[Rfam]
RNA: Histone 3' UTR stem-loop
Nucleotides: 046
Stems, first nucleotide, its partner, number of pairs: 006021006
Number, partner (000 for none) and nucleotide at each position: 001000c002000c003000a004000a005000a006021g007020g008019c009018u010017c011016u012000u013000u014000u015000a016011a017010g018009a019008g020007c021006c022000g023000c024000a025000c026000a027000c028000u029000u030000u031000a032000a033000c034000u035000a036000a037000a038000a039000a040000a041000g042000a043000g044000c045000u046000g